[Rfam]
The family of this 114-nucleotide RNA from Alistipes communis is "Group II catalytic intron D1-D4-1". NCBI's taxonomy places the organism under Bacteria, Pseudomonadati, Bacteroidota, Bacteroidales, Alistipes.

RNA sequence: GGAGGUCUUGGCGAUUACGAGUUAAUCAAUCCAAGAAGUCAGCAGAGGUCAUAGUACUUGAGGGCAAACGAGGUGCGAAUAGAUACCGCAUAGGUCUCACAAACAAGGAAGGAC
Numbered sequence: 001g002g003a004g005g006u007c008u009u010g011g012c013g014a015u016u017a018c019g020a021g022u023u024a025a026u027c028a029a030u031c032c033a034a035g036a037a038g039u040c041a042g043c044a045g046a047g048g049u050c051a052u053a054g055u056a057c058u059u060g061a062g063g064g065c066a067a068a069c070g071a072g073g074u075g076c077g078a079a080u081a082g083a084u085a086c087c088g089c090a091u092a093g094g095u096c097u098c099a100c101a102a103a104c105a106a107g108g109a110a111g112g113a114c
Base pairs, nucleotide, nucleotide: 001027002026005023007021008020009019010018039046040045048114049113050112057107058106059105060104
About the family: Group II introns are found in rRNA, tRNA and mRNA of organelles in fungi, plants and protists, and also in mRNA in bacteria.